[Rfam]
RNA sequence: UAUUAGGUUGGUAUAAAAGUAAUUGCAGGUUUUGUCAUUAAAAGUAAUGGUAAAAACUGCAAUUACUUUUAUACCAACCUAAUA
Numbered sequence: 001u002a003u004u005a006g007g008u009u010g011g012u013a014u015a016a017a018a019g020u021a022a023u024u025g026c027a028g029g030u031u032u033u034g035u036c037a038u039u040a041a042a043a044g045u046a047a048u049g050g051u052a053a054a055a056a057c058u059g060c061a062a063u064u065a066c067u068u069u070u071a072u073a074c075c076a077a078c079c080u081a082a083u084a
Stems, first nucleotide, its partner, number of pairs: 001084028030055011
This 84-nucleotide RNA from Callithrix jacchus belongs to the Rfam family "mir-548 microRNA precursor family". Rfam links the family to the GO terms miRNA-mediated post-transcriptional gene silencing and RISC complex. On this family, see Jima et al., Blood 2010: "Deep sequencing of the small RNA transcriptome of normal and malignant human B cells identifies hundreds of novel microRNAs". The family's consensus secondary structure was predicted with WAR. Taxonomically the source falls in Callithrix (Eukaryota, Teleostomi, Euteleostomi, Haplorrhini).